[Rfam]
RNA sequence: UGACGGAAGGGCACCACAAGGCGUGGGACGUGCGGCUCAACUUGACUCAACACGGCAAACUUACCAGGCCCGGACACCGCAAGGAUUGACAGAUUGAGAGCUCUCUCGUGAUUCGUUGGAUGGUGGUGCAUGGCCGAUUUUAGUUGGUGGAGCGAUUUGUCUGCUUGAUUGCGAUAACGAACGAGACUCCUCCUAUUAACUAGGCGUCGGGGUAUGUGUUCCCCCGGCGCAUCAAACCUCUUCUUAGAGGGACCGGUUGUCGCAAGCAGCAAGAGUGGGAGCUAAAUCAGGUCAGUGAUGCCCUUCGAUGCCCUGGGCCGCACGCGCGUCACACUGAAGGAGACAACGCGUCUUCCCCUGCCGAGAGGUACGGGUAACCGCUGAACCUCCUUCGUGAUAGGGACCGGGGAUUGCAAUUAUUCCCCGCGAACGAGGAAUGCCCAGUAAGCGCGAGUCAUCAGCUCGCGUUGAUCGAGUCCCUGCCCUUUGUGCACA
Numbered sequence: 001u002g003a004c005g006g007a008a009g010g011g012c013a014c015c016a017c018a019a020g021g022c023g024u025g026g027g028a029c030g031u032g033c034g035g036c037u038c039a040a041c042u043u044g045a046c047u048c049a050a051c052a053c054g055g056c057a058a059a060c061u062u063a064c065c066a067g068g069c070c071c072g073g074a075c076a077c078c079g080c081a082a083g084g085a086u087u088g089a090c091a092g093a094u095u096g097a098g099a100g101c102u103c104u105c106u107c108g109u110g111a112u113u114c115g116u117u118g119g120a121u122g123g124u125g126g127u128g129c130a131u132g133g134c135c136g137a138u139u140u141u142a143g144u145u146g147g148u149g150g151a152g153c154g155a156u157u158u159g160u161c162u163g164c165u166u167g168a169u170u171g172c173g174a175u176a177a178c179g180a181a182c183g184a185g186a187c188u189c190c191u192c193c194u195a196u197u198a199a200c201u202a203g204g205c206g207u208c209g210g211g212g213u214a215u216g217u218g219u220u221c222c223c224c225c226g227g228c229g230c231a232u233c234a235a236a237c238c239u240c241u242u243c244u245u246a247g248a249g250g251g252a253c254c255g256g257u258u259g260u261c262g263c264a265a266g267c268a269g270c271a272a273g274a275g276u277g278g279g280a281g282c283u284a285a286a287u288c289a290g291g292u293c294a295g296u297g298a299u300g301c302c303c304u305u306c307g308a309u310g311c312c313c314u315g316g317g318c319c320g321c322a323c324g325c326g327c328g329u330c331a332c333a334c335u336g337a338a339g340g341a342g343a344c345a346a347c348g349c350g351u352c353u354u355c356c357c358c359u360g361c362c363g364a365g366a367g368g369u370a371c372g373g374g375u376a377a378c379c380g381c382u383g384a385a386c387c388u389c390c391u392u393c394g395u396g397a398u399a400g401g402g403a404c405c406g407g408g409g410a411u412u413g414c415a416a417u418u419a420u421u422c423c424c425c426g427c428g429a430a431c432g433a434g435g436a437a438u439g440c441c442c443a444g445u446a447a448g449c450g451c452g453a454g455u456c457a458u459c460a461g462c463u464c465g466c467g468u469u470g471a472u473c474g475a476g477u478c479c480c481u482g483c484c485c486u487u488u489g490u491g492c493a494c495a
Stems, first nucleotide, its partner, number of pairs: 001493002003490003007487007016477002020441005025332001027330008035321002042055003064316005070310001075118002078115002088107002091104003122304002125302004131298001132296001133292003136288004143182003147178002149158003162173003188280004192250003196247004202241003253273001256270005336393007348381003355374002359370004400431001405426006447469008